[Rfam]
A member of the RNA family "UnaL2 LINE 3' element" from Silurus meridionalis, 54 nucleotides long. The match comes from Rfam's covariance-model search (56 bits). Rfam classes the family as a cis-regulatory element. The source organism's lineage runs through Eukaryota, Euteleostomi, Teleostei, Clupeocephala and Silurus.
RNA sequence: UCCCUGCUCAGUUGUAAGUCGCUCUGGAUAAGGGCGUCUGCCAAAUGCCGUAAA
Dot-bracket structure: ............((((...((((((.....))))))..))).)...........
Numbered sequence: 001u002c003c004c005u006g007c008u009c010a011g012u013u014g015u016a017a018g019u020c021g022c023u024c025u026g027g028a029u030a031a032g033g034g035c036g037u038c039u040g041c042c043a044a045a046u047g048c049c050g051u052a053a054a
Stems, first nucleotide, its partner, number of pairs: 013043001014041003020036006
Rfam links the family to the GO term transposition, RNA-mediated.